This 125-nucleotide sequence from Oncorhynchus mykiss belongs to the Rfam family "Small nucleolar RNA SNORA71". It scores 67 bits against the family's covariance model. The family's RNA type in Rfam is H/ACA-box small nucleolar RNA. Lineage of the source: Eukaryota > Chordata > Euteleostomi > Neopterygii > Oncorhynchus. For this family Rfam cites "The family of box ACA small nucleolar RNAs is defined by an evolutionarily conserved secondary structure and ubiquitous sequence elements essential for RNA accumulation" (Ganot et al., Genes Dev, 1997). Pairs were carried over by alignment from the consensus structure, which was predicted with PFOLD. From the family's description: The members of this family belong to the H/ACA class of snoRNAs which bind a number of proteins (including dyskerin, Gar1p and Nop10p) to form snoRNP complexes. This class of snoRNAs are thought to guide the sites of modification of uridines to pseudouridines by forming direct base pairing interactions with substrate RNAs. This family includes U71 (SNORA71), ACA39 (SNORA39) and ACA60 (SNORA60). U71 and ACA60 are predicted to guide the pseudouridylation of U406 and U1004 in 18S rRNA respectively. There is currently no target RNA identified for ACA39.
[Rfam]
RNA sequence: ACCUGUAUCGAAAGUGACUAUGGCGCAACUGUUGCCAUAGUCAUUGAUGUUACGGGAAUUGUGACGGAAAUAUUUUACCGUGUUUGUUGGAAUAUCUUUUCCUGUCAAACCCUGUCUUUCAAACA
Numbered sequence: 001a002c003c004u005g006u007a008u009c010g011a012a013a014g015u016g017a018c019u020a021u022g023g024c025g026c027a028a029c030u031g032u033u034g035c036c037a038u039a040g041u042c043a044u045u046g047a048u049g050u051u052a053c054g055g056g057a058a059u060u061g062u063g064a065c066g067g068a069a070a071u072a073u074u075u076u077a078c079c080g081u082g083u084u085u086g087u088u089g090g091a092a093u094a095u096c097u098u099u100u101c102c103u104g105u106c107a108a109a110c111c112c113u114g115u116c117u118u119u120c121a122a123a124c125a
Stems, first nucleotide, its partner, number of pairs: 002056006009049001013045008022036004067120004082110005087104001089102003